A member of the RNA family "Small nucleolar RNA SNORD93" from Podarcis muralis, 90 nucleotides long. Rfam classes the family as a C/D-box small nucleolar RNA. Taxonomically the source falls in Podarcis (Eukaryota, Eumetazoa, Bifurcata, Laterata).
RNA sequence: UGGCCAAAGAUGAAAACCAUGAACUGAUUGUGGAUACUUCUAUAAAGUGUUAUACACAGAUCUGAUGGCUCAAAGGAUUUUCUGAGGCCA
Numbered sequence: 001u002g003g004c005c006a007a008a009g010a011u012g013a014a015a016a017c018c019a020u021g022a023a024c025u026g027a028u029u030g031u032g033g034a035u036a037c038u039u040c041u042a043u044a045a046a047g048u049g050u051u052a053u054a055c056a057c058a059g060a061u062c063u064g065a066u067g068g069c070u071c072a073a074a075g076g077a078u079u080u081u082c083u084g085a086g087g088c089c090a
Base pairs, nucleotide, nucleotide: 002089003088004087005086
The literature on the family includes a 2002 paper in Mol Cell Biol by Galardi et al., "Purified box C/D snoRNPs are able to reproduce site-specific 2'-O-methylation of target RNA in vitro".